Record summary
The family of this 156-nucleotide sequence from Teichococcus wenyumeiae is "6S / SsrS RNA". The organism belongs to Roseomonas, within Bacteria. The match comes from Rfam's covariance-model search (76 bits). The family has 150 seed sequences and 5,006 matches in Rfam 15.1. E. coli 6S RNA was the first non coding RNA to be sequenced, but its function was unknown until recently. It consists of 184 nucleotides that fold into an extended hairpin structure with a large single-stranded internal bulge. The 6S RNA specifically associates with RNA polymerase holoenzyme containing the sigma70 specificity factor.
[Rfam]
RNA sequence: CCGGAGCUGCCCGGUGCGUCAGGUACAUUAUCCCUGGGGCCAAUAAGCAACCUCCGGGAGCUGGCUCUGACCGGAUCUUGGUCCGGUUACCUGGUGCCCACCUGUUUACGCAGGUCUCGGGAGGAUAAAGACGCCAACGGCCAUGGCGGCUCCACU
Numbered sequence: 001c002c003g004g005a006g007c008u009g010c011c012c013g014g015u016g017c018g019u020c021a022g023g024u025a026c027a028u029u030a031u032c033c034c035u036g037g038g039g040c041c042a043a044u045a046a047g048c049a050a051c052c053u054c055c056g057g058g059a060g061c062u063g064g065c066u067c068u069g070a071c072c073g074g075a076u077c078u079u080g081g082u083c084c085g086g087u088u089a090c091c092u093g094g095u096g097c098c099c100a101c102c103u104g105u106u107u108a109c110g111c112a113g114g115u116c117u118c119g120g121g122a123g124g125a126u127a128a129a130g131a132c133g134c135c136a137a138c139g140g141c142c143a144u145g146g147c148g149g150c151u152c153c154a155c156u
Base pairs, nucleotide, nucleotide: 003153004152005151006150007149008148009147010146011145013142014141015140017139018138019137031122032121033120034119036118037117038116039115040114041113056099057098058097060095061094062093063092064091069088070087071086072085073084074083075082